[Rfam]
RNA sequence: CGCCAAGCGGGACGCGACGACCCCCGACCAGCUUUCGGUCGCCGUCGGCGAGAGCCGACCGUCGGGGUGAGCGAGUGGCGAGACCGGCCCGUGGAA
Numbered sequence: 001c002g003c004c005a006a007g008c009g010g011g012a013c014g015c016g017a018c019g020a021c022c023c024c025c026g027a028c029c030a031g032c033u034u035u036c037g038g039u040c041g042c043c044g045u046c047g048g049c050g051a052g053a054g055c056c057g058a059c060c061g062u063c064g065g066g067g068u069g070a071g072c073g074a075g076u077g078g079c080g081a082g083a084c085c086g087g088c089c090c091g092u093g094g095a096a
Stems, first nucleotide, its partner, number of pairs: 003094003008091004013073003022067007037085002039081005
Shown here is a 96-nucleotide RNA sequence, a member of the family "c-di-GMP-II-GAG riboswitch aptamer". The sequence is in the family's curated seed alignment. Gene Ontology terms of the family: cyclic-di-GMP binding and regulation of gene expression. A reference for the family is Weinberg et al. (2017), "Bioinformatic analysis of riboswitch structures uncovers variant classes with altered ligand specificity", Proc Natl Acad Sci U S A.